Description:
The record is a 221-nucleotide sequence, which matches "Group II catalytic intron D1-D4-6" in Rfam. Pairs were carried over by alignment from the consensus structure. Group II introns are found in rRNA, tRNA and mRNA of organelles in fungi, plants and protists, and also in mRNA in bacteria.
[Rfam]
RNA sequence: CAAGUCCCCCACAGCAAAGGUGUAGCGAACCAUGUUGUCCCCGAGUCAUGCGUGGUGCAUCGCGAGGUGCAGCGCGAAGCGUUGACAGGGGUACGUGCAGGCCAGCCAUUGAGCCGCGAAAGAGAUUCGAUCCGGGUGCCGACGUUGUCCGACUCGCGGAAGGCAACACGCACGGGCGCGCCAUCGCAAGCGCCCAUGCGACCCGGCGUGGCCGAAGACCC
Numbered sequence: 001c002a003a004g005u006c007c008c009c010c011a012c013a014g015c016a017a018a019g020g021u022g023u024a025g026c027g028a029a030c031c032a033u034g035u036u037g038u039c040c041c042c043g044a045g046u047c048a049u050g051c052g053u054g055g056u057g058c059a060u061c062g063c064g065a066g067g068u069g070c071a072g073c074g075c076g077a078a079g080c081g082u083u084g085a086c087a088g089g090g091g092u093a094c095g096u097g098c099a100g101g102c103c104a105g106c107c108a109u110u111g112a113g114c115c116g117c118g119a120a121a122g123a124g125a126u127u128c129g130a131u132c133c134g135g136g137u138g139c140c141g142a143c144g145u146u147g148u149c150c151g152a153c154u155c156g157c158g159g160a161a162g163g164c165a166a167c168a169c170g171c172a173c174g175g176g177c178g179c180g181c182c183a184u185c186g187c188a189a190g191c192g193c194c195c196a197u198g199c200g201a202c203c204c205g206g207c208g209u210g211g212c213c214g215a216a217g218a219c220c221c
Base pairs, nucleotide, nucleotide: 012037013036014035015034016033019031020030021029023189025187026186039091040090041089042088045086046085047084048083049081050080051076052075053074054073056071057070058069059068060067061066110215111213113212114211115210116209117208118207132206133205134204135203136202137201138164139163140162143158144157145156169200170199171198172197174195175194176193177192178191179190